SAM riboswitch aptamer (S box leader): a 107-nucleotide RNA from Orenia metallireducens. It scores 97 bits against the family's covariance model. From the family's description: The SAM riboswitch is found upstream of a number of genes which code for proteins involved in methionine or cysteine biosynthesis in Gram-positive bacteria. The SAM riboswitch acts at the level of transcription termination control. The predicted structure consists of a complex stem-loop region followed by a single stem loop terminator region. An alternative and mutually exclusive form involves bases in the 3' segment of helix 1 with those in the 5' region of helix 5 to form a structure termed the anti-terminator form. The organism belongs to Orenia, within Bacteria. Pairs were carried over by alignment from the consensus structure, which is taken from published work.

[Rfam]
RNA sequence: CUCUUAUCAAGAGAGGUGGAGGGACUGGCCCGAUGAAGCCCAGCAACCAUCCCUGACAGGGAAAGGUGCUAAUUCCAGCAAUACAGAUAAGUAUUGAGAGAUGAGGG
Numbered sequence: 001c002u003c004u005u006a007u008c009a010a011g012a013g014a015g016g017u018g019g020a021g022g023g024a025c026u027g028g029c030c031c032g033a034u035g036a037a038g039c040c041c042a043g044c045a046a047c048c049a050u051c052c053c054u055g056a057c058a059g060g061g062a063a064a065g066g067u068g069c070u071a072a073u074u075c076c077a078g079c080a081a082u083a084c085a086g087a088u089a090a091g092u093a094u095u096g097a098g099a100g101a102u103g104a105g106g107g
Stems, first nucleotide, its partner, number of pairs: 001107008013041001015040003021031003025078004042070004047066002050061003074099001079096006